Shown here is a 63-nucleotide sequence from Semnornis frantzii, a member of the family "Small nucleolar RNA Z39". The match comes from Rfam's covariance-model search (54 bits). The family's consensus secondary structure was predicted with PFOLD. The organism belongs to Semnornis, within Eukaryota. Rfam 15.1 lists 935 matches to the family in 520 species. The family's RNA type in Rfam is C/D-box small nucleolar RNA. A reference for the family is Chen et al. (2003), "The high diversity of snoRNAs in plants: identification and comparative study of 120 snoRNA genes from Oryza sativa", Nucleic Acids Res.

RNA sequence: GUACAGGUGAUGAGCAUUGCAGUAUGAGGAGCAACAAUGAUACUGUAAACGCUUUCUGAUGUA
Numbered sequence: 001g002u003a004c005a006g007g008u009g010a011u012g013a014g015c016a017u018u019g020c021a022g023u024a025u026g027a028g029g030a031g032c033a034a035c036a037a038u039g040a041u042a043c044u045g046u047a048a049a050c051g052c053u054u055u056c057u058g059a060u061g062u063a
Stems, first nucleotide, its partner, number of pairs: 002063004012055001013053003020045006